The record is an 85-nucleotide sequence from Polypterus senegalus, which matches "mir-130 microRNA precursor family" in Rfam. The organism belongs to Polypterus, within Eukaryota. The base pairs follow the family's consensus structure, which was predicted with PFOLD.
RNA sequence: UGGGGGCUGACCCCCUUUUUGUGUUGUACUACUGUCCGCCAUCCGAGCUGAGCAGUGCAACAAUAAAAAGGGCAUCAGCCUGCUG
Numbered sequence: 001u002g003g004g005g006g007c008u009g010a011c012c013c014c015c016u017u018u019u020u021g022u023g024u025u026g027u028a029c030u031a032c033u034g035u036c037c038g039c040c041a042u043c044c045g046a047g048c049u050g051a052g053c054a055g056u057g058c059a060a061c062a063a064u065a066a067a068a069a070g071g072g073c074a075u076c077a078g079c080c081u082g083c084u085g
Stems, first nucleotide, its partner, number of pairs: 001085003005080006013072007022062009